[Rfam]
RNA: MAT2A 3'UTR stem loop A
Organism: Saimiri boliviensis
RNA sequence: GCCUCUUUUCUGCAUACUUGUUGGCACAGGCUACAGAGAAGCCUUCAAGCUCUGAGGGAAAGGGC
Numbered sequence: 001g002c003c004u005c006u007u008u009u010c011u012g013c014a015u016a017c018u019u020g021u022u023g024g025c026a027c028a029g030g031c032u033a034c035a036g037a038g039a040a041g042c043c044u045u046c047a048a049g050c051u052c053u054g055a056g057g058g059a060a061a062g063g064g065c
Stems, first nucleotide, its partner, number of pairs: 001065004008059004013054002016051001019047002023043003